[Rfam]
RNA sequence: UGAGAAAAGCAGAAGUGAGAACUUCUCGCCUUGCGACUAAGGUUGUCUGGCCCAACAUGUCAAGAUUCCAUUAGGAAUAUUAUGUGUGCGGGCUUGAAUUAUCAAGUCCGCUUUCGUUUUUCUCG
Numbered sequence: 001u002g003a004g005a006a007a008a009g010c011a012g013a014a015g016u017g018a019g020a021a022c023u024u025c026u027c028g029c030c031u032u033g034c035g036a037c038u039a040a041g042g043u044u045g046u047c048u049g050g051c052c053c054a055a056c057a058u059g060u061c062a063a064g065a066u067u068c069c070a071u072u073a074g075g076a077a078u079a080u081u082a083u084g085u086g087u088g089c090g091g092g093c094u095u096g097a098a099u100u101a102u103c104a105a106g107u108c109c110g111c112u113u114u115c116g117u118u119u120u121u122c123u124c125g
Stems, first nucleotide, its partner, number of pairs: 011026006028051003033046005088111009
Shown here is a 125-nucleotide RNA sequence from Streptococcus ferus, a member of the family "Ribosomal protein L20 leader".
The match comes from Rfam's covariance-model search (82 bits).
The literature on the family includes a 1994 paper in Prog Nucleic Acid Res Mol Biol by Zengel and Lindahl, "Diverse mechanisms for regulating ribosomal protein synthesis in Escherichia coli".
About the family: This family is a putative r-protein leader autoregulatory structure found in B. subtilis and other low-GC Gram-positive bacteria.